[Rfam]
RNA sequence: AAACCAGCCAAUGAGUUUGCUUACAUGAAUGUGUUUCUGCAGGAAUUUGGAGAAAGCUGGCACUAGUGAAGCCAUGUUUCCAGCCUUAAAGACACUGAAGUCAUUUAGCUCUCUGAAGAUUGCUAAAAGA
Numbered sequence: 001a002a003a004c005c006a007g008c009c010a011a012u013g014a015g016u017u018u019g020c021u022u023a024c025a026u027g028a029a030u031g032u033g034u035u036u037c038u039g040c041a042g043g044a045a046u047u048u049g050g051a052g053a054a055a056g057c058u059g060g061c062a063c064u065a066g067u068g069a070a071g072c073c074a075u076g077u078u079u080c081c082a083g084c085c086u087u088a089a090a091g092a093c094a095c096u097g098a099a100g101u102c103a104u105u106u107a108g109c110u111c112u113c114u115g116a117a118g119a120u121u122g123c124u125a126a127a128a129g130a
Stems, first nucleotide, its partner, number of pairs: 004060004016043005071123002074120001083110001085108002088105002091102003